Source information: The family of this 184-nucleotide RNA sequence from Paenibacillus nasutitermitis is "c-di-AMP riboswitch aptamer (ydaO/yuaA leader)". The source organism's lineage runs through Bacteria, Bacillati, Caryophanales, Paenibacillaceae and Paenibacillus.
RNA sequence: UUGUUUCAUUCGCUGAAUAUUGCGCAGCAGCUGCAGUAACGGGGGAACCAACGACUGUCCUCGUCCAGUGGGACGAAUGCUACGGUCACGGGGUGAAUCAUCCGGCAUUCCAAAAUGCCGGGCGUAGGGCGACUCUCAUGCCCGAAUCCGACAGCUAACCUCGUAAGCGUACGGGAGAGGCAAC
Number, nucleotide and partner (000 for none) at each position: 001u000002u000003g000004u000005u000006u000007c000008a000009u000010u000011c169012g168013c167014u166015g000016a000017a000018u038019a037020u036021u035022g034023c033024g032025c000026a000027g000028c000029a000030g000031c000032u024033g023034c022035a021036g020037u019038a018039a164040c163041g162042g161043g160044g159045g000046a000047a000048c000049c090050a000051a000052c000053g000054a000055c000056u000057g000058u000059c000060c000061u000062c000063g000064u000065c000066c000067a000068g000069u000070g000071g000072g000073a000074c000075g000076a000077a000078u000079g000080c000081u000082a000083c000084g000085g000086u000087c000088a000089c000090g049091g149092g148093g147094u000095g000096a000097a000098u000099c124100a000101u122102c121103c120104g119105g118106c117107a116108u115109u114110c000111c000112a000113a000114a109115a108116u107117g106118c105119c104120g103121g102122g101123c000124g099125u000126a000127g143128g142129g141130c140131g000132a000133c000134u000135c000136u000137c000138a000139u000140g130141c129142c128143c127144g000145a000146a000147u093148c092149c091150g000151a000152c000153a000154g000155c000156u000157a000158a000159c044160c043161u042162c041163g040164u039165a000166a014167g013168c012169g011170u000171a000172c000173g000174g000175g000176a000177g000178a000179g000180g000181c000182a000183a000184c000